[Rfam]
RNA: Small nucleolar RNA snoR136
RNA sequence: AUGGCUUCACUUACGAUUGUUAAUUGCAUGAUUUAUUUUUGUAAUUAAGUUAUGCAUCUUGUGUGUGAAGCUAUAAUGACGUUCUCCUCAAUACCAAUGCAAUGAUUGUAUUGCAGUUGGACGUUAAGGGAACAACAUUU
Numbered sequence: 001a002u003g004g005c006u007u008c009a010c011u012u013a014c015g016a017u018u019g020u021u022a023a024u025u026g027c028a029u030g031a032u033u034u035a036u037u038u039u040u041g042u043a044a045u046u047a048a049g050u051u052a053u054g055c056a057u058c059u060u061g062u063g064u065g066u067g068a069a070g071c072u073a074u075a076a077u078g079a080c081g082u083u084c085u086c087c088u089c090a091a092u093a094c095c096a097a098u099g100c101a102a103u104g105a106u107u108g109u110a111u112u113g114c115a116g117u118u119g120g121a122c123g124u125u126a127a128g129g130g131a132a133c134a135a136c137a138u139u140u
Base pairs, nucleotide, nucleotide: 001074002073003072004071005070008067009066010065012063013062016060019057020056026055027054028053029052030051031050032049033048034047035046081133082132083131084130085129086128089123094120095119096118097117102111103110104109